[Rfam]
RNA sequence: AAACAAUUUAAAACGUUCACUUAUAUAAAUCUGACAAUAUGGGUCAGAUGUCUCUACCGAGCUACCCUAAAUAGUUGUAGGCUAUAAGUGCUGUGUGGCUACAG
Numbered sequence: 001a002a003a004c005a006a007u008u009u010a011a012a013a014c015g016u017u018c019a020c021u022u023a024u025a026u027a028a029a030u031c032u033g034a035c036a037a038u039a040u041g042g043g044u045c046a047g048a049u050g051u052c053u054c055u056a057c058c059g060a061g062c063u064a065c066c067c068u069a070a071a072u073a074g075u076u077g078u079a080g081g082c083u084a085u086a087a088g089u090g091c092u093g094u095g096u097g098g099c100u101a102c103a104g
Base pairs, nucleotide, nucleotide: 018090019089020088021087022086023085024084025083029049030048031047032046033045034044035043058080060076061075062074063073064072
Dot-bracket structure: .................((((((((...(((((((.......)))))))........(.(((((.......)))))...)..))))))))..............